RNA sequence: CCGCGUUGGGGAGUAGCUUCCGACUUUAGUCGGCUCUGCGUCAACACACUUGCGCCUUGCGCAUGGUGCAGAGAGCGGCGUUCGCCGCCU
Numbered sequence: 001c002c003g004c005g006u007u008g009g010g011g012a013g014u015a016g017c018u019u020c021c022g023a024c025u026u027u028a029g030u031c032g033g034c035u036c037u038g039c040g041u042c043a044a045c046a047c048a049c050u051u052g053c054g055c056c057u058u059g060c061g062c063a064u065g066g067u068g069c070a071g072a073g074a075g076c077g078g079c080g081u082u083c084g085c086c087g088c089c090u
Stems, first nucleotide, its partner, number of pairs: 021032003034073010051063005075088005
Dot-bracket structure: ....................(((......))).((((((((((.......(((((...))))))))))))))).(((((....)))))..
RNA: Manganese Mn2+ riboswitch aptamer (yybP-ykoY)